Small nucleolar RNA SNORD111: an 80-nucleotide RNA from Thryothorus ludovicianus. The family has 5 seed sequences and 894 matches in Rfam 15.1. It is annotated as a C/D-box small nucleolar RNA.

RNA sequence: UAGCCUGAAGUGAUGAGCAUGGUUCAUGUCUCUUCUCUGAGAUUUAUGCUGGAGAUACUCUAAAGACUCUGAUCAGGCAG
Numbered sequence: 001u002a003g004c005c006u007g008a009a010g011u012g013a014u015g016a017g018c019a020u021g022g023u024u025c026a027u028g029u030c031u032c033u034u035c036u037c038u039g040a041g042a043u044u045u046a047u048g049c050u051g052g053a054g055a056u057a058c059u060c061u062a063a064a065g066a067c068u069c070u071g072a073u074c075a076g077g078c079a080g
Stems, first nucleotide, its partner, number of pairs: 001080001003078003